[Rfam]
The family of this 119-nucleotide RNA sequence from Frankliniella occidentalis is "U5 spliceosomal RNA". A reference for the family is Thomas et al. (1990), "The spliceosomal snRNAs of Caenorhabditis elegans", Nucleic Acids Res. The source organism's lineage runs through Eukaryota, Mandibulata, Altocrustacea, Hexapoda and Frankliniella. Rfam describes the family as follows. U5 RNA is a component of both types of known spliceosome. Rfam classes the family as a spliceosomal small nuclear RNA. Pairs were carried over by alignment from the consensus structure, which is taken from published work.

RNA sequence: UUACUCUGGUCUCCCUUCAAAACGAACAAAUCUUUCGCCUUUUACUAAAGAUUUCCGUGGAGGGGGACACUUGAUGAGUCUAUUCGUCAAUUUUUUGUAUGCCCUGCGCAAGCGGGGCG
Numbered sequence: 001u002u003a004c005u006c007u008g009g010u011c012u013c014c015c016u017u018c019a020a021a022a023c024g025a026a027c028a029a030a031u032c033u034u035u036c037g038c039c040u041u042u043u044a045c046u047a048a049a050g051a052u053u054u055c056c057g058u059g060g061a062g063g064g065g066g067a068c069a070c071u072u073g074a075u076g077a078g079u080c081u082a083u084u085c086g087u088c089a090a091u092u093u094u095u096u097g098u099a100u101g102c103c104c105u106g107c108g109c110a111a112g113c114g115g116g117g118c119g
Stems, first nucleotide, its partner, number of pairs: 003079004009068011028054008101118006